The record is an 82-nucleotide RNA from Prochlorococcus marinus, which matches "Cyanobacterial ribosomal protein S1 leader" in Rfam. Rfam's curators write: cyano-S1 is a ncRNA recognized in the 5-prime region of genes encoding 30S ribosomal protein S1, it has been proposed as an cis regulation element.
[Rfam]
RNA sequence: AGGUGUAGAGUGAGUUAUCUGUUCCUUUAGGUUGGCAGGCCUAAAGGGCAAAUGUACGCAUUGCCUCAAGGCAUACUGCCCG
Dot-bracket structure: .......................(((((((((.[[[[[)))))))))..............((((....))))..]]]]]..

It is one of the family's seed sequences. A reference for the family is Weinberg et al. (2007), "Identification of 22 candidate structured RNAs in bacteria using the CMfinder comparative genomics pipeline", Nucleic Acids Res. The family's consensus secondary structure is taken from published work.